The family of this 82-nucleotide RNA is "freshwater-2 RNA". It is annotated as a cis-regulatory element. It is one of the family's seed sequences.

[Rfam]
RNA sequence: ACUCACAUGGGGUGAGUUUUAUGCGGAAAUCCAACCGCGUACGGCCUAGAACGCCGUUAUUCUUUAAGGAGAAAUUAAAAUG
Numbered sequence: 001a002c003u004c005a006c007a008u009g010g011g012g013u014g015a016g017u018u019u020u021a022u023g024c025g026g027a028a029a030u031c032c033a034a035c036c037g038c039g040u041a042c043g044g045c046c047u048a049g050a051a052c053g054c055c056g057u058u059a060u061u062c063u064u065u066a067a068g069g070a071g072a073a074a075u076u077a078a079a080a081u082g
Stems, first nucleotide, its partner, number of pairs: 001017006020041007042056004